Source information:
Burkholderia sRNA 2: a 120-nucleotide sequence from Burkholderia multivorans. The organism belongs to Burkholderia multivorans, within Bacteria.
RNA sequence: AUGAAUGCCAGUUCGCCCCAUAUUUCUCGUAGCUGCGCCGGUGCUCUCCGGCAUCUGACGCGCAUCACGACGGUAUCAGCCGAGCCGCAUGUCCCUGUCCACGGGGCAGCGGCUUUUUUU
Numbered sequence: 001a002u003g004a005a006u007g008c009c010a011g012u013u014c015g016c017c018c019c020a021u022a023u024u025u026c027u028c029g030u031a032g033c034u035g036c037g038c039c040g041g042u043g044c045u046c047u048c049c050g051g052c053a054u055c056u057g058a059c060g061c062g063c064a065u066c067a068c069g070a071c072g073g074u075a076u077c078a079g080c081c082g083a084g085c086c087g088c089a090u091g092u093c094c095c096u097g098u099c100c101a102c103g104g105g106g107c108a109g110c111g112g113c114u115u116u117u118u119u120u
Stems, first nucleotide, its partner, number of pairs: 007038002009035005014029002040066005046060001049057003071082004083114006090108006
A search with the family's covariance model found it, with a score of 109 bits. Upregulated in response to iron ion depletion. Predicted targets include MerR family transcriptional regulator.